Class I RNA from Dictyostelium: a 59-nucleotide RNA sequence from Dictyostelium purpureum. About the family: Dictyostelium Class I RNA was first reported for Aspegren et al. 2004 in Dictyostelium discoideum. Sucgang et al. 2011 identify putative homologs of Class I RNA in D. discoideum and D. purpureum. Avesson et al. 2011 report that Class I RNA present a down regulation during the development of social amoeba Dictyostelium discoideum, they also found that deletion of one of the Class I RNAs, DdR-21, results in aberrant development.
RNA sequence: GAAUUCCUUACAGCAAUUUAAUAAAAAUCAAAUUACACACUUGAAAACCUUGGAUUCUG
Numbered sequence: 001g002a003a004u005u006c007c008u009u010a011c012a013g014c015a016a017u018u019u020a021a022u023a024a025a026a027a028u029c030a031a032a033u034u035a036c037a038c039a040c041u042u043g044a045a046a047a048c049c050u051u052g053g054a055u056u057c058u059g
Stems, first nucleotide, its partner, number of pairs: 001057006
Dot-bracket structure: ((((((.............................................))))))..
By type it is a non-coding RNA gene. On this family, see Aspegren et al., Nucleic Acids Res 2004: "Novel non-coding RNAs in Dictyostelium discoideum and their expression during development". The source organism's lineage runs through Eukaryota, Eumycetozoa, Dictyostelia, Dictyosteliales and Dictyostelium. It is one of the family's seed sequences.